[Rfam]
RNA sequence: GGCCGCCGAGGAUAGAGUAAGCCGCGGUGACGCGGCUGGUCGAGAAAUCCGAC
Numbered sequence: 001g002g003c004c005g006c007c008g009a010g011g012a013u014a015g016a017g018u019a020a021g022c023c024g025c026g027g028u029g030a031c032g033c034g035g036c037u038g039g040u041c042g043a044g045a046a047a048u049c050c051g052a053c
Base pairs, nucleotide, nucleotide: 020037021036022035023034024033025032026031
RNA: leuA-Halobacteria RNA